[Rfam]
RNA sequence: AGAAAAUUUGGCAAUGGAAUCUGCCCGAAACCGCCCAAAAGGCUGAUGAUACCUACCUAACU
Numbered sequence: 001a002g003a004a005a006a007u008u009u010g011g012c013a014a015u016g017g018a019a020u021c022u023g024c025c026c027g028a029a030a031c032c033g034c035c036c037a038a039a040a041g042g043c044u045g046a047u048g049a050u051a052c053c054u055a056c057c058u059a060a061c062u
Stems, first nucleotide, its partner, number of pairs: 010025004016053002019050003033043003
RNA: Fluoride riboswitch aptamer (crcB RNA motif)